The record is a 78-nucleotide RNA sequence from Stieleria varia, which matches "c-di-GMP-I riboswitch aptamer" in Rfam. From the family's description: GEMM was predicted in a large-scale screen for bacterial structured RNA regulatory elements. Genes associated with GEMM are involved in a diverse array of functions, including chemotaxis regulation, signal transduction, secretion and chitin. The organism belongs to Stieleria, within Bacteria.
[Rfam]
RNA sequence: UUCCCGAAAAGGCAAACCGGCUGCGAAGCCGAGUGCGCAAAGCCACGGGUCUCCCGAUGAGACAGCCGGGUUACCGAA
Numbered sequence: 001u002u003c004c005c006g007a008a009a010a011g012g013c014a015a016a017c018c019g020g021c022u023g024c025g026a027a028g029c030c031g032a033g034u035g036c037g038c039a040a041a042g043c044c045a046c047g048g049g050u051c052u053c054c055c056g057a058u059g060a061g062a063c064a065g066c067c068g069g070g071u072u073a074c075c076g077a078a
Base pairs, nucleotide, nucleotide: 012038013037017033018031019030020029021028022027041072042071043070044069046068047067048066049063050062051061052060053059